[Rfam]
RNA sequence: AAUAUCCUUCGGGGUCGGGUGUAAGUCCCAACCGGCGGUGAUAAGGCAAUGCCUUUAAGCCCGUGACCCGUUUUCGUAUUUUUCGAUAACGGUGGAUCUAGUUAAAAUCUAGAGCCGACAGUAAAAGUCUGGAUGGGAGAAGGAUCAG
Numbered sequence: 001a002a003u004a005u006c007c008u009u010c011g012g013g014g015u016c017g018g019g020u021g022u023a024a025g026u027c028c029c030a031a032c033c034g035g036c037g038g039u040g041a042u043a044a045g046g047c048a049a050u051g052c053c054u055u056u057a058a059g060c061c062c063g064u065g066a067c068c069c070g071u072u073u074u075c076g077u078a079u080u081u082u083u084c085g086a087u088a089a090c091g092g093u094g095g096a097u098c099u100a101g102u103u104a105a106a107a108u109c110u111a112g113a114g115c116c117g118a119c120a121g122u123a124a125a126a127g128u129c130u131g132g133a134u135g136g137g138a139g140a141a142g143g144a145u146c147a148g
Stems, first nucleotide, its partner, number of pairs: 004145007017029003031128002033117002035064004059115002068092004097113005119131003